[Rfam]
Shown here is a 48-nucleotide RNA sequence, a member of the family "nhaA-I RNA". Rfam's curators write: Acidobacteria, Alphaproteobacteria, Betaproteobacteria and Gammaproteobacteria, Verrucomicrobia, cand. division NC10.
RNA sequence: GGGUGCAGCGUCGUUUGCUGCAGGAUGAGGAUGGUCGGGCCGCCAUCC
Numbered sequence: 001g002g003g004u005g006c007a008g009c010g011u012c013g014u015u016u017g018c019u020g021c022a023g024g025a026u027g028a029g030g031a032u033g034g035u036c037g038g039g040c041c042g043c044c045a046u047c048c
Stems, first nucleotide, its partner, number of pairs: 005021006029048007